Shown here is a 234-nucleotide sequence from Miscanthus lutarioriparius, a member of the family "MIR6217 microRNA precursor family".
NCBI's taxonomy places the organism under Eukaryota, Petrosaviidae, Panicoideae, Saccharinae, Miscanthus.
Pairs were carried over by alignment from the consensus structure, which was predicted with RNAalifold.
[Rfam]
RNA sequence: UAGCUACAAAAUAACUUAUUCUGUAGACGCUUUGAGUUACGAUAAUUACUAUGUUAAUUUACGAGAUUAUAGUAACACCUUACUAGGUGGUUUACUAUAACGUUAUGAUAAAUAUCCCCAUGUGUUAUAUUAACUCAACUAUCGUAAAUAUAUAUAUUGAUAUUAUCGUAAAUUAGUAUAUAAAAUUAUAAGUAAAUGGAGGUGGCUCUGAGAAUAACUUAUUUUUUGUAGUGG
Numbered sequence: 001u002a003g004c005u006a007c008a009a010a011a012u013a014a015c016u017u018a019u020u021c022u023g024u025a026g027a028c029g030c031u032u033u034g035a036g037u038u039a040c041g042a043u044a045a046u047u048a049c050u051a052u053g054u055u056a057a058u059u060u061a062c063g064a065g066a067u068u069a070u071a072g073u074a075a076c077a078c079c080u081u082a083c084u085a086g087g088u089g090g091u092u093u094a095c096u097a098u099a100a101c102g103u104u105a106u107g108a109u110a111a112a113u114a115u116c117c118c119c120a121u122g123u124g125u126u127a128u129a130u131u132a133a134c135u136c137a138a139c140u141a142u143c144g145u146a147a148a149u150a151u152a153u154a155u156a157u158u159g160a161u162a163u164u165a166u167c168g169u170a171a172a173u174u175a176g177u178a179u180a181u182a183a184a185a186u187u188a189u190a191a192g193u194a195a196a197u198g199g200a201g202g203u204g205g206c207u208c209u210g211a212g213a214a215u216a217a218c219u220u221a222u223u224u225u226u227u228g229u230a231g232u233g234g
Stems, first nucleotide, its partner, number of pairs: 001234001003232007010223005016217007023209001025207002028204006037195004042189006050180013065167003069163003072157003080147004087142006093132002096129008107117001